Phenylalanine leader peptide: a 122-nucleotide sequence from Photobacterium gaetbulicola. On this family, see Zurawski et al., Proc Natl Acad Sci U S A 1978: "Nucleotide sequence of the leader region of the phenylalanine operon of Escherichia coli". The source organism's lineage runs through Bacteria, Pseudomonadati, Vibrionales, Photobacterium and Photobacterium gaetbulicola. The base pairs follow the family's consensus structure, which was predicted with CMfinder. The family's RNA type in Rfam is cis-regulatory leader.
RNA sequence: CAUACAGCCCAACUGUUUUUCUUUAGCUUCUUUUUUAUGUCACCUUAGUGGGGGCUAUUCGUUACGCAAGAAACAAGCUAAAGACGAACAGACAGCCUCCUCUAACCGGGAGGCUUUUUUGU
Numbered sequence: 001c002a003u004a005c006a007g008c009c010c011a012a013c014u015g016u017u018u019u020u021c022u023u024u025a026g027c028u029u030c031u032u033u034u035u036u037a038u039g040u041c042a043c044c045u046u047a048g049u050g051g052g053g054g055c056u057a058u059u060c061g062u063u064a065c066g067c068a069a070g071a072a073a074c075a076a077g078c079u080a081a082a083g084a085c086g087a088a089c090a091g092a093c094a095g096c097c098u099c100c101u102c103u104a105a106c107c108g109g110g111a112g113g114c115u116u117u118u119u120u121g122u
Base pairs, nucleotide, nucleotide: 015089016088017087018086020084021083022082023081024080025079026078027077028076029075031073032072033071035069036068038066041052043051044050053063054062055061092117094115095114096113097112098111099110100109101108